[Rfam]
RNA: Betaproteobacteria toxic small RNA
Organism: Oxalicibacterium solurbis
RNA sequence: UGUCUCCUCUAUGUCUCCUCCUUUGAUAUAGAUUUAGCCCGCCAUCUGCGCGGGCUUUUUUUU
Numbered sequence: 001u002g003u004c005u006c007c008u009c010u011a012u013g014u015c016u017c018c019u020c021c022u023u024u025g026a027u028a029u030a031g032a033u034u035u036a037g038c039c040c041g042c043c044a045u046c047u048g049c050g051c052g053g054g055c056u057u058u059u060u061u062u063u
Stems, first nucleotide, its partner, number of pairs: 008032008036056007
Dot-bracket structure: .......((((((((.........))))))))...(((((((.......))))))).......